[Rfam]
RNA sequence: AGGCGUUCUCAGGGCGGGGUGCAAUUCCCGACCGGCGGUCACAGCCCGCGAGCGCCAUCCGGUGGGUGGGUCAGCAGAUCCGGUGGAAUUCCGGGGCCGACGGUAUAGUCCGGAUGGUAGAGAACGAGA
Numbered sequence: 001a002g003g004c005g006u007u008c009u010c011a012g013g014g015c016g017g018g019g020u021g022c023a024a025u026u027c028c029c030g031a032c033c034g035g036c037g038g039u040c041a042c043a044g045c046c047c048g049c050g051a052g053c054g055c056c057a058u059c060c061g062g063u064g065g066g067u068g069g070g071u072c073a074g075c076a077g078a079u080c081c082g083g084u085g086g087a088a089u090u091c092c093g094g095g096g097c098c099g100a101c102g103g104u105a106u107a108g109u110c111c112g113g114a115u116g117g118u119a120g121a122g123a124a125c126g127a128g129a
Base pairs, nucleotide, nucleotide: 004126005125006124007123008122009121010120017029018028019027031109032108033099034098035049036048037047038046044097045096052075053074079095080094081093082092083091101112102111103110
FMN riboswitch aptamer (RFN element): a 129-nucleotide sequence from Thioclava indica. The RFN element is a highly conserved domain that is found frequently in the 5'-untranslated regions of prokaryotic mRNAs that encode for flavin mononucleotide (FMN) biosynthesis and transport proteins. This element is a metabolite-dependent riboswitch that directly binds FMN in the absence of proteins. In Bacillus subtilis, the riboswitch most likely controls gene expression by causing premature transcription termination within the 5' untranslated region of the ribDEAHT operon and precluding access to the ribosome-binding site of ypaA mRNA.The FMN riboswitch structure, reported in present an FMN-bound six-stem junction, adopts a butterfly-like scaffold, stapled together by opposingly directed but nearly identically folded peripheral domains. NCBI's taxonomy places the organism under Bacteria, Pseudomonadati, Rhodobacterales, Paracoccaceae, Thioclava.